A member of the RNA family "Flavo-1 RNA" from Flavobacterium sp., 86 nucleotides long. It scores 55 bits against the family's covariance model. By type it is a small RNA. Taxonomically the source falls in Flavobacterium (Bacteria, Pseudomonadati, Flavobacteriales, Flavobacteriaceae).
RNA sequence: GAAGAGCCAACCGCGUUAGCGAUUGAAGCGGAAAUCCUUUUUGUGAAGCAUGAACAAAAAGAUUGCAGCGGAAAGCGCGGCGCGAA
Numbered sequence: 001g002a003a004g005a006g007c008c009a010a011c012c013g014c015g016u017u018a019g020c021g022a023u024u025g026a027a028g029c030g031g032a033a034a035u036c037c038u039u040u041u042u043g044u045g046a047a048g049c050a051u052g053a054a055c056a057a058a059a060a061g062a063u064u065g066c067a068g069c070g071g072a073a074a075g076c077g078c079g080g081c082g083c084g085a086a
Stems, first nucleotide, its partner, number of pairs: 019078003023074002028069002033064004039059006